[Rfam]
RNA sequence: UUUCGUGGGGAUCGCCGUCAGUCAGCGCGUUGCGCCCACUGGCGCGAUUCGUG
Dot-bracket structure: ...............(((((((..((((...))))..))))))).........
This 53-nucleotide RNA from Phaeovulum veldkampii belongs to the Rfam family "ffh sRNA". By type it is a small RNA. The source organism's lineage runs through Bacteria, Pseudomonadati, Alphaproteobacteria, Phaeovulum and Phaeovulum veldkampii.